Shown here is an 81-nucleotide RNA sequence from Muraenolepis orangiensis, a member of the family "Mammalian CPEB3 ribozyme". Rfam links the family to the GO term RNA nuclease activity. The source organism's lineage runs through Eukaryota, Deuterostomia, Euteleosteomorpha, Gadiformes and Muraenolepis. For this family Rfam cites "Autocatalytic RNA cleavage in the human beta-globin pre-mRNA promotes transcription termination" (Teixeira et al., Nature, 2004).
[Rfam]
RNA sequence: UGUAAAUUGUAGGGGAUCAUGGUAGAAGUGCUCAUGUCGGGAUCCCUGUCAAGGCUUUAAACAAAGCCUGUGAAUUAUACC
Numbered sequence: 001u002g003u004a005a006a007u008u009g010u011a012g013g014g015g016a017u018c019a020u021g022g023u024a025g026a027a028g029u030g031c032u033c034a035u036g037u038c039g040g041g042a043u044c045c046c047u048g049u050c051a052a053g054g055c056u057u058u059a060a061a062c063a064a065a066g067c068c069u070g071u072g073a074a075u076u077a078u079a080c081c
Base pairs, nucleotide, nucleotide: 013046014045015044016043017042018041021081022080023079024078026076027075029039030038050070051069053068054067055066056065057064